[Rfam]
RNA: Small nucleolar RNA SNORA9
RNA sequence: UAGCAAGCUUCCAGCGUGCUUGGGUCUGCAGUGACUCUGUGCAUUCCACAGUGCUUGCUAGAACAGUUCUGGAAUGGUUUGAGGCCUUGCCCUGAUCUCUCCAGAGCAAGGUUAUAGAAAUUUCAGACAAUU
Numbered sequence: 001u002a003g004c005a006a007g008c009u010u011c012c013a014g015c016g017u018g019c020u021u022g023g024g025u026c027u028g029c030a031g032u033g034a035c036u037c038u039g040u041g042c043a044u045u046c047c048a049c050a051g052u053g054c055u056u057g058c059u060a061g062a063a064c065a066g067u068u069c070u071g072g073a074a075u076g077g078u079u080u081g082a083g084g085c086c087u088u089g090c091c092c093u094g095a096u097c098u099c100u101c102c103a104g105a106g107c108a109a110g111g112u113u114a115u116a117g118a119a120a121u122u123u124c125a126g127a128c129a130a131u132u
Stems, first nucleotide, its partner, number of pairs: 003058006017043003022037005070125005085111006092104003